RNA: c-di-GMP-I riboswitch aptamer
RNA sequence: GCGUGCAAAUGGCAAACCGGUGGAAACGCCGGGACGCAAAGCUCAGGAGACUAAAGCGAGAGAUCCCGCCAAGUCAGUCCGGCCGCCACG
Numbered sequence: 001g002c003g004u005g006c007a008a009a010u011g012g013c014a015a016a017c018c019g020g021u022g023g024a025a026a027c028g029c030c031g032g033g034a035c036g037c038a039a040a041g042c043u044c045a046g047g048a049g050a051c052u053a054a055a056g057c058g059a060g061a062g063a064u065c066c067c068g069c070c071a072a073g074u075c076a077g078u079c080c081g082g083c084c085g086c087c088a089c090g
Base pairs, nucleotide, nucleotide: 012037013036017032018031019030020029021028022027041083042082043081046080047079048078049075050074051073056069057068058067